Shown here is a 72-nucleotide RNA from Muntiacus reevesi, a member of the family "Small nucleolar RNA SNORD112".
For this family Rfam cites "Identification of tandemly-repeated C/D snoRNA genes at the imprinted human 14q32 domain reminiscent of those at the Prader-Willi/Angelman syndrome region" (Cavaille et al., Hum Mol Genet, 2002).
The organism belongs to Muntiacus, within Eukaryota.
Rfam links the family to the GO terms RNA processing and nucleolus.
Pairs were carried over by alignment from the consensus structure, which was predicted with WAR.
[Rfam]
RNA sequence: UGAGUCAAUGAGGAGUGUGUGUCAAGAACAAAGGAAUUUGAUUAAUCCAGUUCUGUGCCUCUGAGACUCAUA
Numbered sequence: 001u002g003a004g005u006c007a008a009u010g011a012g013g014a015g016u017g018u019g020u021g022u023c024a025a026g027a028a029c030a031a032a033g034g035a036a037u038u039u040g041a042u043u044a045a046u047c048c049a050g051u052u053c054u055g056u057g058c059c060u061c062u063g064a065g066a067c068u069c070a071u072a
Base pairs, nucleotide, nucleotide: 001070002069003068004067005066006065